[Rfam]
RNA sequence: AUGGGAGAGGUUCUAGAAAAACCCUCUAUAAAAAACUAAGGAUGC
Numbered sequence: 001a002u003g004g005g006a007g008a009g010g011u012u013c014u015a016g017a018a019a020a021a022c023c024c025u026c027u028a029u030a031a032a033a034a035a036c037u038a039a040g041g042a043u044g045c
Stems, first nucleotide, its partner, number of pairs: 006027005016037001
About this RNA:
This 45-nucleotide RNA from Litchfieldia salsa belongs to the Rfam family "PreQ1 (pre queuosine) riboswitch aptamer". The pairing is the family consensus, mapped onto this sequence. Gene Ontology term of the family: queuosine biosynthetic process. Rfam's curators write: This family is a bacterial riboswitch that binds to the metabolite preQ1, an intermediate in the biosynthesis of the modified nucleoside queuosine from GTP. One example of this riboswitch is located in the leader of the Bacillus subtilis ykvJKLM (queCDEF) operon which encodes four genes necessary for queuosine production. PreQ1 binding to the riboswitch aptamer is thought to induce premature transcription termination within the leader to down-regulate expression of these genes. Lineage of the source: Bacteria > Bacillati > Bacilli > Bacillaceae > Litchfieldia.